[Rfam]
RNA sequence: UGGGCUUUGUUUAUUGUGAGCUUACAGCUUUACACUAAGUUCAAUUAGUUAAUGCUGCUAUUAAUGAAGCCUAAAAAGUUGUUUCCCUCGCUAUCCAAGUCUUCAAUACAUGUUGCAUUUGGACGUCGGGAAACUACAUUU
Numbered sequence: 001u002g003g004g005c006u007u008u009g010u011u012u013a014u015u016g017u018g019a020g021c022u023u024a025c026a027g028c029u030u031u032a033c034a035c036u037a038a039g040u041u042c043a044a045u046u047a048g049u050u051a052a053u054g055c056u057g058c059u060a061u062u063a064a065u066g067a068a069g070c071c072u073a074a075a076a077a078g079u080u081g082u083u084u085c086c087c088u089c090g091c092u093a094u095c096c097a098a099g100u101c102u103u104c105a106a107u108a109c110a111u112g113u114u115g116c117a118u119u120u121g122g123a124c125g126u127c128g129g130g131a132a133a134c135u136a137c138a139u140u141u
Stems, first nucleotide, its partner, number of pairs: 001074001003071003008066002014063001017060002025057004030052002034049003081134007089125002094123005104112002